[Rfam]
RNA sequence: GGGUGCAGCCAUUCGGCUGCAGGACCGAGAUGGUCGGGCCGCCAUCU
Numbered sequence: 001g002g003g004u005g006c007a008g009c010c011a012u013u014c015g016g017c018u019g020c021a022g023g024a025c026c027g028a029g030a031u032g033g034u035c036g037g038g039c040c041g042c043c044a045u046c047u
Base pairs, nucleotide, nucleotide: 005020006019007018008017009016010015028047029046030045031044032043033042034041
The family of this 47-nucleotide RNA sequence from a Myxococcales bacterium is "nhaA-I RNA". Acidobacteria, Alphaproteobacteria, Betaproteobacteria and Gammaproteobacteria, Verrucomicrobia, cand. division NC10. The source organism's lineage runs through Bacteria, Pseudomonadati, Myxococcota, Myxococcia and Myxococcales. It scores 47 bits against the family's covariance model. The family's consensus secondary structure is taken from published work.